[Rfam]
RNA: Small nucleolar RNA snoR53Y
Organism: Oryza meyeriana
RNA sequence: GUUCCCAGUGAUGGUUUAAAUUAACCAUGCUAAUACUGAUGUCUUUUGACCUUUGACGAUUAAAAAUAUUUUACUGAGGGAACC
Numbered sequence: 001g002u003u004c005c006c007a008g009u010g011a012u013g014g015u016u017u018a019a020a021u022u023a024a025c026c027a028u029g030c031u032a033a034u035a036c037u038g039a040u041g042u043c044u045u046u047u048g049a050c051c052u053u054u055g056a057c058g059a060u061u062a063a064a065a066a067u068a069u070u071u072u073a074c075u076g077a078g079g080g081a082a083c084c
Base pairs, nucleotide, nucleotide: 001083002082003081004080005079